[Rfam]
RNA sequence: AUCAGAGUAGAUAAAGAGCAUUAAGUGUUAGGAAAUGGGUUGUUGUUCCUAAACGAAGCGAAUGCGUGAUUCUUUAUCGCAACCGCUGCC
Numbered sequence: 001a002u003c004a005g006a007g008u009a010g011a012u013a014a015a016g017a018g019c020a021u022u023a024a025g026u027g028u029u030a031g032g033a034a035a036u037g038g039g040u041u042g043u044u045g046u047u048c049c050u051a052a053a054c055g056a057a058g059c060g061a062a063u064g065c066g067u068g069a070u071u072c073u074u075u076a077u078c079g080c081a082a083c084c085g086c087u088g089c090c
Stems, first nucleotide, its partner, number of pairs: 003088003010078009019068003025054002028052007038084005058065002
RNA: THF (Tetrahydrofolate) riboswitch aptamer
Organism: Anaerococcus tetradius